Shown here is a 110-nucleotide sequence from Mobilisporobacter senegalensis, a member of the family "c-di-GMP-I riboswitch aptamer". The family is grouped with related families in Rfam's "c-di-GMP_I riboswitch clan". The source organism's lineage runs through Bacteria, Clostridia, Lachnospirales, Lachnospiraceae and Mobilisporobacter. The literature on the family includes a 2007 paper in Nucleic Acids Res by Weinberg et al., "Identification of 22 candidate structured RNAs in bacteria using the CMfinder comparative genomics pipeline".
RNA sequence: UAAAAUAUGGGGCAAACUUAUAGAAAUAUAAGGACGCAAAGCUAGAAGUCGCACAAGAUUAAUUUUUAUAUUUGUAAAUAAAAACAAUCUUAGAUAGUUCGGUUGCAGCA
Numbered sequence: 001u002a003a004a005a006u007a008u009g010g011g012g013c014a015a016a017c018u019u020a021u022a023g024a025a026a027u028a029u030a031a032g033g034a035c036g037c038a039a040a041g042c043u044a045g046a047a048g049u050c051g052c053a054c055a056a057g058a059u060u061a062a063u064u065u066u067u068a069u070a071u072u073u074g075u076a077a078a079u080a081a082a083a084a085c086a087a088u089c090u091u092a093g094a095u096a097g098u099u100c101g102g103u104u105g106c107a108g109c110a
Base pairs, nucleotide, nucleotide: 012037013036017032018031019030020029021028022027040104041103042102043101045100046099047098048095049094050093057089058088059087